[Rfam]
This 61-nucleotide RNA from Caenorhabditis brenneri belongs to the Rfam family "mir-52 microRNA precursor family". The family has 5 seed sequences and 11 matches in Rfam 15.1. A reference for the family is Lau et al. (2001), "An abundant class of tiny RNAs with probable regulatory roles in Caenorhabditis elegans", Science. Pairs were carried over by alignment from the consensus structure, which was predicted with RNAalifold.

RNA sequence: CACCCGUACAUAUGUUUCCGUGCUUGACAAUGAGUUCAAUCACGUCACAAUUUAUGGGUCG
Numbered sequence: 001c002a003c004c005c006g007u008a009c010a011u012a013u014g015u016u017u018c019c020g021u022g023c024u025u026g027a028c029a030a031u032g033a034g035u036u037c038a039a040u041c042a043c044g045u046c047a048c049a050a051u052u053u054a055u056g057g058g059u060c061g
Stems, first nucleotide, its partner, number of pairs: 002059007010051002013049003019044004024039004